[Rfam]
RNA sequence: UUCAACAAUGGGCAAAACCGGUGAAAACCGGCGACGCAAAGCUAGAGGGUCUUCGUCUUCGGACAUGGCAGCCAGCUGCGGUU
Numbered sequence: 001u002u003c004a005a006c007a008a009u010g011g012g013c014a015a016a017a018c019c020g021g022u023g024a025a026a027a028c029c030g031g032c033g034a035c036g037c038a039a040a041g042c043u044a045g046a047g048g049g050u051c052u053u054c055g056u057c058u059u060c061g062g063a064c065a066u067g068g069c070a071g072c073c074a075g076c077u078g079c080g081g082u083u
Base pairs, nucleotide, nucleotide: 012037013036018031019030020029021028022027040077041076042075043074047073048072049069050068051067052063053062054061055060
Shown here is an 83-nucleotide RNA from Feifania hominis, a member of the family "c-di-GMP-I riboswitch aptamer". It scores 60 bits against the family's covariance model. GEMM was predicted in a large-scale screen for bacterial structured RNA regulatory elements. Genes associated with GEMM are involved in a diverse array of functions, including chemotaxis regulation, signal transduction, secretion and chitin. The organism belongs to Feifania, within Bacteria.